[Rfam]
RNA sequence: GCUCUGUGUACGCAAGGGCUACACAGGCCGAUCACUGAAAAACAGGUGGUCAGCUCAGUCAUCCUGCUUCGGCAAACACACUACUAGGUUUGGCAUAACGUAGAGUAUGCAGAAAGCUGAAAUACGAAGCCAGC
Number, nucleotide and partner (000 for none) at each position: 001g028002c027003u000004c026005u025006g024007u023008g022009u021010a020011c000012g019013c018014a000015a000016g000017g000018g013019c012020u010021a009022c008023a007024c006025a005026g004027g002028c001029c000030g000031a000032u000033c000034a000035c000036u000037g000038a000039a000040a000041a000042a000043c000044a000045g000046g000047u000048g000049g000050u000051c000052a000053g000054c000055u000056c000057a000058g000059u000060c000061a000062u000063c000064c000065u074066g073067c072068u000069u000070c000071g000072g067073c066074a065075a000076a000077c000078a000079c000080a000081c000082u000083a000084c000085u000086a000087g000088g134089u000090u133091u132092g131093g130094c129095a000096u000097a000098a000099c126100g125101u124102a123103g000104a000105g000106u000107a000108u000109g117110c000111a000112g000113a000114a000115a000116g000117c109118u000119g000120a000121a000122a000123u102124a101125c100126g099127a000128a000129g094130c093131c092132a091133g090134c088

The family of this 134-nucleotide sequence is "Bacteriophage Diversity-Generating Retroelement RNA". Rfam's curators put it in the seed alignment. The base pairs follow the family's consensus structure, which is taken from published work. A reference for the family is Handa et al. (2025), "RNA control of reverse transcription in a diversity-generating retroelement", Nature.